The family of this 84-nucleotide RNA sequence is "L4-Archaeoglobi ribosomal protein leades". Rfam's curators put it in the seed alignment. By type it is a cis-regulatory leader.
[Rfam]
RNA sequence: CUGAUUGGGACGCAUGGGUCGACGUUCGUGCAACGAGCCCGUUCCGCUGCCUCAUUGAAUGGCAGAAGGAUGCGUUAUUGUCAG
Numbered sequence: 001c002u003g004a005u006u007g008g009g010a011c012g013c014a015u016g017g018g019u020c021g022a023c024g025u026u027c028g029u030g031c032a033a034c035g036a037g038c039c040c041g042u043u044c045c046g047c048u049g050c051c052u053c054a055u056u057g058a059a060u061g062g063c064a065g066a067a068g069g070a071u072g073c074g075u076u077a078u079u080g081u082c083a084g
Stems, first nucleotide, its partner, number of pairs: 001084005009076005015041004023035004043070003047065005